The family of this 168-nucleotide RNA sequence from Medicago truncatula is "MIR2680 microRNA precursor family". The sequence is in the family's curated seed alignment. Gene Ontology terms of the family: RISC complex and miRNA-mediated post-transcriptional gene silencing. Lineage of the source: Eukaryota > Pentapetalae > rosids > fabids > Medicago.
RNA sequence: AUAGGGUCUAGACCUGGCAUAUCUUCAUAGGACCAUGCAAAAAUAUCUGGAUAUUCCCGGAGGAGUUGGAUGAUCUUCUGUUUAACCCCUUCCUCUAGAGUGGCACCAAUCUUGAUUUCUCGCUUGUUUUCCUCGGUACCUAUGUUGAUAAGCUCGAUCUCUUCUUGG
Numbered sequence: 001a002u003a004g005g006g007u008c009u010a011g012a013c014c015u016g017g018c019a020u021a022u023c024u025u026c027a028u029a030g031g032a033c034c035a036u037g038c039a040a041a042a043a044u045a046u047c048u049g050g051a052u053a054u055u056c057c058c059g060g061a062g063g064a065g066u067u068g069g070a071u072g073a074u075c076u077u078c079u080g081u082u083u084a085a086c087c088c089c090u091u092c093c094u095c096u097a098g099a100g101u102g103g104c105a106c107c108a109a110u111c112u113u114g115a116u117u118u119c120u121c122g123c124u125u126g127u128u129u130u131c132c133u134c135g136g137u138a139c140c141u142a143u144g145u146u147g148a149u150a151a152g153c154u155c156g157a158u159c160u161c162u163u164c165u166u167g168g
Stems, first nucleotide, its partner, number of pairs: 002167005010160003016154003020150004026144006032137003040130006048122002050119002052102005059096007068087002071084003